[Rfam]
RNA sequence: CCUGAUAACUUUUUGCUUUUUCGUAUAACCUCAAUAAUUGGAUUGAGGGUCUCUACAGGAAACCGUACAUUUCCUAAGCUACGAAAAAGGUUUCUUCCCAU
Numbered sequence: 001c002c003u004g005a006u007a008a009c010u011u012u013u014u015g016c017u018u019u020u021u022c023g024u025a026u027a028a029c030c031u032c033a034a035u036a037a038u039u040g041g042a043u044u045g046a047g048g049g050u051c052u053c054u055a056c057a058g059g060a061a062a063c064c065g066u067a068c069a070u071u072u073c074c075u076a077a078g079c080u081a082c083g084a085a086a087a088a089g090g091u092u093u094c095u096u097c098c099c100a101u
Base pairs, nucleotide, nucleotide: 018087019086020085021084022083023082024081025080029048030047031046032045033044034043035042057075058074059073060072061071062070
RNA: Purine riboswitch aptamer
Organism: Natribacillus halophilus